[Rfam]
RNA: c-di-GMP-I riboswitch aptamer
Organism: Clostridiales bacterium PH28_bin88
RNA sequence: UUGUGCUAAAGGCAAGCCACUCGAAAUGGUGGGGCGGAAAGACAUGGGUCUGUGGCCCUUGAGGGUAUGACUGCCAGGUCGGCGCG
Numbered sequence: 001u002u003g004u005g006c007u008a009a010a011g012g013c014a015a016g017c018c019a020c021u022c023g024a025a026a027u028g029g030u031g032g033g034g035c036g037g038a039a040a041g042a043c044a045u046g047g048g049u050c051u052g053u054g055g056c057c058c059u060u061g062a063g064g065g066u067a068u069g070a071c072u073g074c075c076a077g078g079u080c081g082g083c084g085c086g
Stems, first nucleotide, its partner, number of pairs: 013036001017032005041079001043077001045076003048071003055066004
Dot-bracket structure: ............(...(((((......)))))...)....(.(.((((((....((((....))))..)))..)))).).......